[Rfam]
RNA sequence: CGAGCGGGCCAGACGAUCGCGCGCUUCGGCGUGAGGAAAGUCCGGGCUCCAUAGGGCAAGAUGCCAGCUAACGGCUGGGCGGGGCGACCCGACGGAAAGUGCCACAGAAAAGAAGACUCCCCCGCGAACACGCGCUUCGGCGCGCAGAAACGGGAGAAAAGCUGAAACGGUGCGGUAAGAGCGCACCAGCGCGCCGGCAACGGCGCGGCUUGGAAAACCCCAUCUGGAGCAAGCGCAAAUAGGAACGCGACACGGUUGCCCGCCGUACGUUCGGGUUGCGUGCUAGAGGCGUCUGGCGACAGGCGUUCGAGAUAAAUGGUCGUCCAACGACAGAACCCGGCUUACCGGCCCGCUCGCAUU
Numbered sequence: 001c002g003a004g005c006g007g008g009c010c011a012g013a014c015g016a017u018c019g020c021g022c023g024c025u026u027c028g029g030c031g032u033g034a035g036g037a038a039a040g041u042c043c044g045g046g047c048u049c050c051a052u053a054g055g056g057c058a059a060g061a062u063g064c065c066a067g068c069u070a071a072c073g074g075c076u077g078g079g080c081g082g083g084g085c086g087a088c089c090c091g092a093c094g095g096a097a098a099g100u101g102c103c104a105c106a107g108a109a110a111a112g113a114a115g116a117c118u119c120c121c122c123c124g125c126g127a128a129c130a131c132g133c134g135c136u137u138c139g140g141c142g143c144g145c146a147g148a149a150a151c152g153g154g155a156g157a158a159a160a161g162c163u164g165a166a167a168c169g170g171u172g173c174g175g176u177a178a179g180a181g182c183g184c185a186c187c188a189g190c191g192c193g194c195c196g197g198c199a200a201c202g203g204c205g206c207g208g209c210u211u212g213g214a215a216a217a218c219c220c221c222a223u224c225u226g227g228a229g230c231a232a233g234c235g236c237a238a239a240u241a242g243g244a245a246c247g248c249g250a251c252a253c254g255g256u257u258g259c260c261c262g263c264c265g266u267a268c269g270u271u272c273g274g275g276u277u278g279c280g281u282g283c284u285a286g287a288g289g290c291g292u293c294u295g296g297c298g299a300c301a302g303g304c305g306u307u308c309g310a311g312a313u314a315a316a317u318g319g320u321c322g323u324c325c326a327a328c329g330a331c332a333g334a335a336c337c338c339g340g341c342u343u344a345c346c347g348g349c350c351c352g353c354u355c356g357c358a359u360u
Base pairs, nucleotide, nucleotide: 001356002355003354004353005352006351007350008349009348010347012324013323014322015321016320017319018318020033021032022031023030024029038343039342040341042340043339044338045337046336047229048228049227050226054261055260056259057258059225060224061223062222063221064078065077066076067075068074079093080091081090082089083088094220095219099218100217102213103212117161118160120156122154123153169187170186171185172184173183174182189209190207191206192205193204194203195202196201233281234280235279236278243272244271245270246269247268252266253265254264255263256262288307289306290305291304292303293302294301295300